[Rfam]
RNA sequence: GCCAUUUCAAGCUCUUGUAGAAUUUGUCUAGUAGGUUUUCCAGUAUUGGCUGGAAAGCCCUU
Numbered sequence: 001g002c003c004a005u006u007u008c009a010a011g012c013u014c015u016u017g018u019a020g021a022a023u024u025u026g027u028c029u030a031g032u033a034g035g036u037u038u039u040c041c042a043g044u045a046u047u048g049g050c051u052g053g054a055a056a057g058c059c060c061u062u
Stems, first nucleotide, its partner, number of pairs: 034059011
Background: This 62-nucleotide RNA from Ornithorhynchus anatinus belongs to the Rfam family "U7 small nuclear RNA". The source organism's lineage runs through Eukaryota, Vertebrata, Euteleostomi, Prototheria and Ornithorhynchus. For this family Rfam cites "3' end processing of mouse histone pre-mRNA: evidence for additional base-pairing between U7 snRNA and pre-mRNA" (Spycher et al., Nucleic Acids Res, 1994).